[Rfam]
The record is a 77-nucleotide sequence from Ameiurus melas, which matches "Small nucleolar RNA SNORD34" in Rfam.
RNA sequence: ACAUGUCUGUGAUGCGAAUUUCUUUACCUACAUUGUUUGAGUUUCCUCUGAGAACAUUACAUCUAACUGAGACACGU
Numbered sequence: 001a002c003a004u005g006u007c008u009g010u011g012a013u014g015c016g017a018a019u020u021u022c023u024u025u026a027c028c029u030a031c032a033u034u035g036u037u038u039g040a041g042u043u044u045c046c047u048c049u050g051a052g053a054a055c056a057u058u059a060c061a062u063c064u065a066a067c068u069g070a071g072a073c074a075c076g077u
Stems, first nucleotide, its partner, number of pairs: 001077002004074004
Its Rfam clan is "SNORD34 clan". It scores 55 bits against the family's covariance model. Lineage of the source: Eukaryota > Eumetazoa > Craniata > Ictaluridae > Ameiurus. Rfam's curators write: snoRNA U34 is found in intron 5 of the ribosomal protein L13a gene in humans.